[Rfam]
RNA sequence: UUUGAGAUGACAUGCUUCUUUAUAUCCCCAUAUGGAUUAGGCUGCUAUGGAAUGUAAGGAAGUGUGUGGUUUCAAG
Dot-bracket structure: ......((.((((((((((((((((..(((((.............))))).)))))))))))))))).))......
This 76-nucleotide sequence from Zosterops lateralis belongs to the Rfam family "mir-1 microRNA precursor family". The base pairs follow the family's consensus structure, which was predicted with RNAalifold. NCBI's taxonomy places the organism under Eukaryota, Craniata, Vertebrata, Neognathae, Zosterops lateralis. Rfam describes the family as follows. This family represents the microRNA (miRNA) mir-1 family. miRNAs are transcribed as ~70nt precursors (modelled here) and subsequently processed by the Dicer enzyme to give a ~22nt product. The literature on the family includes a 2001 paper in Science by Lee and Ambros, "An extensive class of small RNAs in Caenorhabditis elegans".